[Rfam]
RNA sequence: GGGGGGUGUGCUCCCGCGUUCCCUGGGAGGUGUGAUCCCGUGCUCACUGGGGGGUGUGCUCCCGCGCUCCCU
Numbered sequence: 001g002g003g004g005g006g007u008g009u010g011c012u013c014c015c016g017c018g019u020u021c022c023c024u025g026g027g028a029g030g031u032g033u034g035a036u037c038c039c040g041u042g043c044u045c046a047c048u049g050g051g052g053g054g055u056g057u058g059c060u061c062c063c064g065c066g067c068u069c070c071c072u
Stems, first nucleotide, its partner, number of pairs: 001071005015058004020053007029044001031042004
This 72-nucleotide RNA sequence from Rhinopithecus bieti belongs to the Rfam family "mir-3689 microRNA precursor family". The family's consensus secondary structure was predicted with RNAalifold.